The record is a 72-nucleotide sequence from Chiloscyllium punctatum, which matches "Small nucleolar RNA SNORD19" in Rfam. Rfam classes the family as a C/D-box small nucleolar RNA. Pairs were carried over by alignment from the consensus structure. The source organism's lineage runs through Eukaryota, Galeomorphii, Galeoidea, Hemiscylliidae and Chiloscyllium. It scores 39 bits against the family's covariance model.
RNA sequence: GAAAAAUGAGGACAACUUUCAUAGCCUGAUGUCCAUGACUGUAAAAGAUCCAACUCUGAUUUCACUCAGUGG
Numbered sequence: 001g002a003a004a005a006a007u008g009a010g011g012a013c014a015a016c017u018u019u020c021a022u023a024g025c026c027u028g029a030u031g032u033c034c035a036u037g038a039c040u041g042u043a044a045a046a047g048a049u050c051c052a053a054c055u056c057u058g059a060u061u062u063c064a065c066u067c068a069g070u071g072g
Stems, first nucleotide, its partner, number of pairs: 001063004